[Rfam]
RNA sequence: GGGGUCGUUACGGAUUCGACAGGCAUUAUGAGGUAUAUUUCGCGACUCAUCGGCAGAUGUAAAAUGCCAGUUAAAUAUAACUGCAAAAAAUACAAAUUCUUACGCAUUAGCUGCCUAAAAAACAGCCUGCGUGAUCUUCACAAGAUUGUUUGCGUUUUGCUAGAAGGUCUUAUUUAUCAGCAAACUACGUUUGGCUACUGUCUAGUUAGUUAAAAAGAGAUUUAUAGACUCGCUAUGUGAGGGCUUGAGUUAUGUGUCAUCACCUAGUUAAAUCAAUACAUAACCUAUAGUUGUAGACAAAUAUAUUAGCAGAUGUUUGGACGUGGGUUCGACUCCCACCGGCUCCAUAU
Numbered sequence: 001g002g003g004g005u006c007g008u009u010a011c012g013g014a015u016u017c018g019a020c021a022g023g024c025a026u027u028a029u030g031a032g033g034u035a036u037a038u039u040u041c042g043c044g045a046c047u048c049a050u051c052g053g054c055a056g057a058u059g060u061a062a063a064a065u066g067c068c069a070g071u072u073a074a075a076u077a078u079a080a081c082u083g084c085a086a087a088a089a090a091u092a093c094a095a096a097u098u099c100u101u102a103c104g105c106a107u108u109a110g111c112u113g114c115c116u117a118a119a120a121a122a123c124a125g126c127c128u129g130c131g132u133g134a135u136c137u138u139c140a141c142a143a144g145a146u147u148g149u150u151u152g153c154g155u156u157u158u159g160c161u162a163g164a165a166g167g168u169c170u171u172a173u174u175u176a177u178c179a180g181c182a183a184a185c186u187a188c189g190u191u192u193g194g195c196u197a198c199u200g201u202c203u204a205g206u207u208a209g210u211u212a213a214a215a216a217g218a219g220a221u222u223u224a225u226a227g228a229c230u231c232g233c234u235a236u237g238u239g240a241g242g243g244c245u246u247g248a249g250u251u252a253u254g255u256g257u258c259a260u261c262a263c264c265u266a267g268u269u270a271a272a273u274c275a276a277u278a279c280a281u282a283a284c285c286u287a288u289a290g291u292u293g294u295a296g297a298c299a300a301a302u303a304u305a306u307u308a309g310c311a312g313a314u315g316u317u318u319g320g321a322c323g324u325g326g327g328u329u330c331g332a333c334u335c336c337c338a339c340c341g342g343c344u345c346c347a348u349a350u
Stems, first nucleotide, its partner, number of pairs: 001346007020319008032307009043293005048059004052068004107129001110126004133169006141159006148185006190214008200229005232268004237263004242258003249284003254279002323339005
transfer-messenger RNA: a 350-nucleotide sequence from Streptococcus agalactiae. Its Rfam clan is "tRNA clan". Taxonomically the source falls in Streptococcus agalactiae serogroup V (Bacteria, Bacilli, Streptococcaceae, Streptococcus agalactiae). Rfam's curators write: Bacterial tmRNA, also known as 10Sa RNA or SsrA, is named for its dual tRNA and mRNA-like properties. For this family Rfam cites "Phylogenetic analysis of tmRNA secondary structure" (Williams and Bartel, RNA, 1996).